[Rfam]
Nucleotides: 213
Stems, first nucleotide, its partner, number of pairs: 011197004018034006035192006045108002109177003117150002153171004
Number, partner (000 for none) and nucleotide at each position: 001000u002000g003000a004000a005000c006000c007000g008000u009000c010000u011197c012196g013195c014194u015000u016000a017000a018034u019033c020032c021031c022030u023029g024000c025000u026000u027000u028000u029023u030022g031021g032020g033019g034018a035192a036191c037190g038189g039188g040187g041000g042000a043000a044000c045108c046107g047000a048000u049000a050000c051000a052000g053000c054000u055000u056000u057000a058000u059000g060000c061000a062000u063000c064000c065000g066000c067000g068000g069000g070000a071000u072000g073000c074000c075000g076000g077000g078000c079000c080000g081000u082000a083000u084000u085000u086000g087000a088000u089000u090000u091000c092000a093000g094000u095000a096000a097000u098000u099000c100000g101000a102000g103000u104000c105000u106000u107046u108045g109177g110176g111175g112000u113000g114000a115000a116000u117150u118149g119000a120000a121000c122000g123000g124000a125000c126000u127000u128000c129000g130000c131000c132000a133000u134000g135000a136000g137000c138000g139000a140000a141000g142000c143000u144000c145000c146000c147000g148000a149118c150117a151000u152000a153171g154170g155169g156168c157000g158000u159000c160000a161000c162000u163000c164000u165000u166000a167000c168156g169155u170154c171153c172000a173000a174000a175111c176110c177109c178000g179000a180000c181000a182000g183000c184000u185000a186000a187040c188039u189038c190037c191036g192035u193000a194014a195013g196012c197011g198000a199000a200000g201000u202000a203000a204000g205000a206000g207000g208000g209000g210000a211000a212000u213000u

This 213-nucleotide RNA from Paenibacillus sp. 7541 belongs to the Rfam family "c-di-AMP riboswitch aptamer (ydaO/yuaA leader)". Lineage of the source: Bacteria > Bacillati > Bacillota > Bacilli > Paenibacillus.